[Rfam]
RNA sequence: CUAACAGAGUUCAAUUGGCAGUGUGUCCACCUCCGAUAUAUUUAGAAAAAUAUCUAGUUAAGGGAGGUGGACAGAAUGCCAAUAAACUCUACAAG
Number, nucleotide and partner (000 for none) at each position: 001c000002u000003a000004a000005c000006a000007g000008a000009g000010u000011u086012c000013a000014a000015u082016u081017g080018g079019c078020a077021g000022u000023g000024u073025g072026u071027c070028c069029a068030c067031c066032u065033c064034c063035g000036a000037u000038a000039u000040a000041u000042u000043u000044a000045g000046a000047a000048a000049a000050a000051u000052a000053u000054c000055u000056a000057g000058u000059u000060a000061a000062g000063g034064g033065a032066g031067g030068u029069g028070g027071a026072c025073a024074g000075a000076a000077u020078g019079c018080c017081a016082a015083u000084a000085a000086a011087c000088u000089c000090u000091a000092c000093a000094a000095g000
RNA: MIR394 microRNA precursor family
Organism: Cicer arietinum